RNA sequence: AUUACCGAGGGGAACGACGCGCUAAAAAGCGCGCGCAAAAGAGAAACCCCGGCUUUCGCCGGGGUUUCUUCAUUUUAUCAAUAAGUUA
Numbered sequence: 001a002u003u004a005c006c007g008a009g010g011g012g013a014a015c016g017a018c019g020c021g022c023u024a025a026a027a028a029g030c031g032c033g034c035g036c037a038a039a040a041g042a043g044a045a046a047c048c049c050c051g052g053c054u055u056u057c058g059c060c061g062g063g064g065u066u067u068c069u070u071c072a073u074u075u076u077a078u079c080a081a082u083a084a085g086u087u088a
Stems, first nucleotide, its partner, number of pairs: 005012002015035002018033006041070013

Background: Rfam assigns this 88-nucleotide RNA sequence from Brucella suis to the family "Brucella sRNA 120". A reference for the family is Saadeh et al. (2015), "Transcriptome-Wide Identification of Hfq-Associated RNAs in Brucella suis by Deep Sequencing", J Bacteriol. It is one of the family's seed sequences. The family's RNA type in Rfam is small RNA. The source organism's lineage runs through Bacteria, Pseudomonadota, Alphaproteobacteria, Hyphomicrobiales and Brucella suis.